[Rfam]
RNA sequence: UGAUAGCUAUGAAGCGGAGGUUGCUGCGUACAUAUCGCAGGUUUUUCGUGGAGCGAAUGUCAAUUUACAAAACUGGCGACAA
Numbered sequence: 001u002g003a004u005a006g007c008u009a010u011g012a013a014g015c016g017g018a019g020g021u022u023g024c025u026g027c028g029u030a031c032a033u034a035u036c037g038c039a040g041g042u043u044u045u046u047c048g049u050g051g052a053g054c055g056a057a058u059g060u061c062a063a064u065u066u067a068c069a070a071a072a073c074u075g076g077c078g079a080c081a082a
Base pairs, nucleotide, nucleotide: 014049015048016047017046018045019044020043024040025039026038027037028036058081059080060079061078065076066075067074